RNA sequence: UGCAUAAAUAUCCAAAGUAGUGGACGUAAUUUAUCGUGAGCCAACUAUAGAUAUUAUGCUCAUUACUUUGGAUAUGUUGUG
Numbered sequence: 001u002g003c004a005u006a007a008a009u010a011u012c013c014a015a016a017g018u019a020g021u022g023g024a025c026g027u028a029a030u031u032u033a034u035c036g037u038g039a040g041c042c043a044a045c046u047a048u049a050g051a052u053a054u055u056a057u058g059c060u061c062a063u064u065a066c067u068u069u070g071g072a073u074a075u076g077u078u079g080u081g
Base pairs, nucleotide, nucleotide: 002080003079004078011072012071013070014069015068016067017066018065019064020063021062022061023060025058026057027056028055029054032053033052034051035050038045

Overview: The family of this 81-nucleotide RNA sequence from Danaus plexippus is "mir-2763 microRNA precursor family". The match comes from Rfam's covariance-model search (71 bits). Rfam 15.1 lists 59 matches to the family in 43 species.